Rfam assigns this 68-nucleotide RNA sequence from Streptomyces smaragdinus to the family "ASdes TB sRNA". It is annotated as a small RNA.
[Rfam]
RNA sequence: AGGUCGACGGGGUCGAUCGCCCGCGUCACCACGAGAUAGUCCCGCAGCGCGAUGCUGUGCCGGGCCUC
Numbered sequence: 001a002g003g004u005c006g007a008c009g010g011g012g013u014c015g016a017u018c019g020c021c022c023g024c025g026u027c028a029c030c031a032c033g034a035g036a037u038a039g040u041c042c043c044g045c046a047g048c049g050c051g052a053u054g055c056u057g058u059g060c061c062g063g064g065c066c067u068c
Stems, first nucleotide, its partner, number of pairs: 004063003008059002011030003015027003035056001037054002040052002043049002
The organism belongs to Streptomyces, within Bacteria.